A member of the RNA family "U2 spliceosomal RNA" from Alligator sinensis, 174 nucleotides long. The source organism's lineage runs through Eukaryota, Chordata, Sarcopterygii, Alligatorinae and Alligator. By type it is a spliceosomal small nuclear RNA. About the family: U2 is a small nuclear RNA (snRNA) component of the spliceosome (involved in pre-mRNA splicing). Complementary binding between U2 snRNA (in an area lying towards the 5' end but 3' to hairpin I) and the branchpoint sequence (BPS) of the intron results the bulging out of an unpaired adenosine, on the BPS, which initiates a nucleophilic attack at the intronic 5' splice site, thus starting the first of two transesterification reactions that mediate splicing. Clan: U2 clan. The family's consensus secondary structure is taken from published work.

RNA sequence: ACAUCUACUAAUAAAAGUCAAUCUGUUCUUAUCAGUUUAAUAUCUGAUAUGUCCUCGAUGUGAGGACUUUAUAUUAAAUGGAUUUUUGGGACUGGGAGAUGGACUCAGAGCUUGCUCCAUCCACUCCGUGCAUCGGCCUGGUAUUCCAGUGCCUCCAGGAGUGGUGUACCUCCC
Numbered sequence: 001a002c003a004u005c006u007a008c009u010a011a012u013a014a015a016a017g018u019c020a021a022u023c024u025g026u027u028c029u030u031a032u033c034a035g036u037u038u039a040a041u042a043u044c045u046g047a048u049a050u051g052u053c054c055u056c057g058a059u060g061u062g063a064g065g066a067c068u069u070u071a072u073a074u075u076a077a078a079u080g081g082a083u084u085u086u087u088g089g090g091a092c093u094g095g096g097a098g099a100u101g102g103a104c105u106c107a108g109a110g111c112u113u114g115c116u117c118c119a120u121c122c123a124c125u126c127c128g129u130g131c132a133u134c135g136g137c138c139u140g141g142u143a144u145u146c147c148a149g150u151g152c153c154u155c156c157a158g159g160a161g162u163g164g165u166g167u168a169c170c171u172c173c174c
Stems, first nucleotide, its partner, number of pairs: 001006001030049006051067007095127004101121002108117003130167006137159005